[Rfam]
RNA: Y RNA
Organism: Felis catus
RNA sequence: AGUUGGUCCGAGGGUUGUGGGUUAUUGUUAAGUUGUUUAACAGUGUCUCCCCCCGACAACCAUACUUGACUGGCUUUGCCUUUU
Number, nucleotide and partner (000 for none) at each position: 001a075002g074003u073004u072005g071006g070007u069008c068009c000010g067011a066012g000013g000014g063015u062016u058017g057018u056019g000020g054021g053022u000023u000024a000025u000026u042027g041028u040029u000030a038031a037032g000033u000034u000035g000036u000037u031038u030039a000040a028041c027042a026043g000044u000045g000046u000047c000048u000049c000050c000051c000052c000053c021054c020055g000056a018057c017058a016059a000060c000061c000062a015063u014064a000065c000066u011067u010068g008069a007070c006071u005072g004073g003074c002075u001076u000077u000078g000079c000080c000081u000082u000083u000084u000